A member of the RNA family "Small nucleolar RNA R12" from Cicer arietinum, 78 nucleotides long. A search with the family's covariance model found it, with a score of 63 bits. snoR12 is a C/D box small nucleolar RNA, which acts as a methylation guide for 25S ribosomal RNA in plants. snoR12 has been alternatively named snoZ44 in Arabidopsis and snoZ131 in rice.
[Rfam]
RNA sequence: UGUUGAGUGAUGAAAAAAAAUCAAUCGGAUUCCCAUUGAUAUUUUAUACGUGAGAUUAACCAGUUACUUCUGACAACA
Numbered sequence: 001u002g003u004u005g006a007g008u009g010a011u012g013a014a015a016a017a018a019a020a021u022c023a024a025u026c027g028g029a030u031u032c033c034c035a036u037u038g039a040u041a042u043u044u045u046a047u048a049c050g051u052g053a054g055a056u057u058a059a060c061c062a063g064u065u066a067c068u069u070c071u072g073a074c075a076a077c078a
Stems, first nucleotide, its partner, number of pairs: 001078005